[Rfam]
RNA sequence: UCUCGGUGAAGAAACACCCAAAUGUUUUACCUCCUGUCCUAGUCCCAGAGCCUGCAAAGGUGAACCCACUGAGACUGGCUGGAGGUGAAGGGGGGAAGAGGAAAUUUGUUCCAGAAGGAACUGUCUGAGGGAU
Numbered sequence: 001u002c003u004c005g006g007u008g009a010a011g012a013a014a015c016a017c018c019c020a021a022a023u024g025u026u027u028u029a030c031c032u033c034c035u036g037u038c039c040u041a042g043u044c045c046c047a048g049a050g051c052c053u054g055c056a057a058a059g060g061u062g063a064a065c066c067c068a069c070u071g072a073g074a075c076u077g078g079c080u081g082g083a084g085g086u087g088a089a090g091g092g093g094g095g096a097a098g099a100g101g102a103a104a105u106u107u108g109u110u111c112c113a114g115a116a117g118g119a120a121c122u123g124u125c126u127g128a129g130g131g132a133u
Base pairs, nucleotide, nucleotide: 001132002131003130004129